[Rfam]
A member of the RNA family "R2 RNA element" from Agrilus planipennis, 189 nucleotides long. The base pairs follow the family's consensus structure, which is taken from published work. It is annotated as a cis-regulatory element. From the family's description: This family represents the 3' UTR region of the R2 retrotransposable element. This family is known to interact with the R2-encoded reverse transcriptase in a reaction known as target primed reverse transcription (TPRT). The organism belongs to Agrilus, within Eukaryota. Rfam links the family to the GO term regulation of reverse transcription.

RNA sequence: AUAUAAUUUUCAUAGACAUAGAGAAUGGACUUCGCAUUCCGGCUGAAGAGGACCCUAGUUGGUCCUAAAACGGCCUGAGGUAGAGGGGUUUUAGUCGGUAGGUCCGAGGACUUCUUCCUCGGGAAUCCGACACUACCCAGUCGUACGGACGGCUGGGUGUCUUCUGAAGAUUUCCUCUCUUCCACGAAA
Numbered sequence: 001a002u003a004u005a006a007u008u009u010u011c012a013u014a015g016a017c018a019u020a021g022a023g024a025a026u027g028g029a030c031u032u033c034g035c036a037u038u039c040c041g042g043c044u045g046a047a048g049a050g051g052a053c054c055c056u057a058g059u060u061g062g063u064c065c066u067a068a069a070a071c072g073g074c075c076u077g078a079g080g081u082a083g084a085g086g087g088g089u090u091u092u093a094g095u096c097g098g099u100a101g102g103u104c105c106g107a108g109g110a111c112u113u114c115u116u117c118c119u120c121g122g123g124a125a126u127c128c129g130a131c132a133c134u135a136c137c138c139a140g141u142c143g144u145a146c147g148g149a150c151g152g153c154u155g156g157g158u159g160u161c162u163u164c165u166g167a168a169g170a171u172u173u174c175c176u177c178u179c180u181u182c183c184a185c186g187a188a189a
Base pairs, nucleotide, nucleotide: 027054028053030051031050032049059188060187062185063184079183080182082180083179085176086175087174094131095130096129097128098127103123104122105121106120107119108118109117110116133159135158136157137156138155139154